[Rfam]
RNA sequence: CGAGCGGCAUCGUAAAGCCUGGUGACCCUGGCCACUCGGAGAGUGGACCUAGCCGGCGCUGAAAUGCGCUGGGAGAGACUGAAAUCGGGGCCCAGGGUGAGCCGCUUU
Numbered sequence: 001c002g003a004g005c006g007g008c009a010u011c012g013u014a015a016a017g018c019c020u021g022g023u024g025a026c027c028c029u030g031g032c033c034a035c036u037c038g039g040a041g042a043g044u045g046g047a048c049c050u051a052g053c054c055g056g057c058g059c060u061g062a063a064a065u066g067c068g069c070u071g072g073g074a075g076a077g078a079c080u081g082a083a084a085u086c087g088g089g090g091c092c093c094a095g096g097g098u099g100a101g102c103c104g105c106u107u108u
Base pairs, nucleotide, nucleotide: 002107003106004105005104006103007102010100011099012098018096019095020094021093022092026090027089028088033045034044035043036042037041053072054071055070056069057068058067059066